[Rfam]
RNA: Small Cajal body specific RNA 6
Organism: Anguilla anguilla
RNA sequence: GGUCUGUGAUGUACUGUAAAAGGUCUGAUGCCUGAGUUUCCCCCCAGAUUCCUCCCAGCUCCCAGGAGUCCCUGCUCUGUUCCCAGCAUGCUCUAGGUGUGUGAUGUUGGGUUCAGGGGCUUCUGACAGAUGGGAUGACCUCAUCUUGUGUCUCCUUGAGAAUAUGGGGUCACAAUGAUGAUGGACGUCCAACAUAGCCAAUUGCCAAGGAGUAUUUGGGUCUGGGGCUGGAACAGGCGAAUGAUCUCAAGUUUUCAAGCUGAGACC
Numbered sequence: 001g002g003u004c005u006g007u008g009a010u011g012u013a014c015u016g017u018a019a020a021a022g023g024u025c026u027g028a029u030g031c032c033u034g035a036g037u038u039u040c041c042c043c044c045c046a047g048a049u050u051c052c053u054c055c056c057a058g059c060u061c062c063c064a065g066g067a068g069u070c071c072c073u074g075c076u077c078u079g080u081u082c083c084c085a086g087c088a089u090g091c092u093c094u095a096g097g098u099g100u101g102u103g104a105u106g107u108u109g110g111g112u113u114c115a116g117g118g119g120c121u122u123c124u125g126a127c128a129g130a131u132g133g134g135a136u137g138a139c140c141u142c143a144u145c146u147u148g149u150g151u152c153u154c155c156u157u158g159a160g161a162a163u164a165u166g167g168g169g170u171c172a173c174a175a176u177g178a179u180g181a182u183g184g185a186c187g188u189c190c191a192a193c194a195u196a197g198c199c200a201a202u203u204g205c206c207a208a209g210g211a212g213u214a215u216u217u218g219g220g221u222c223u224g225g226g227g228c229u230g231g232a233a234c235a236g237g238c239g240a241a242u243g244a245u246c247u248c249a250a251g252u253u254u255u256c257a258a259g260c261u262g263a264g265a266c267c
Base pairs, nucleotide, nucleotide: 001267002266003265004264034248035247036246038244039243042227043226044225045224046223047222048221059212060211061210062209063125064124065123066122067121068120069119082111083110084109085108086107087106088105089104091101132190134189135188136187137186139184147174148173149172150171152169153168154167155166157164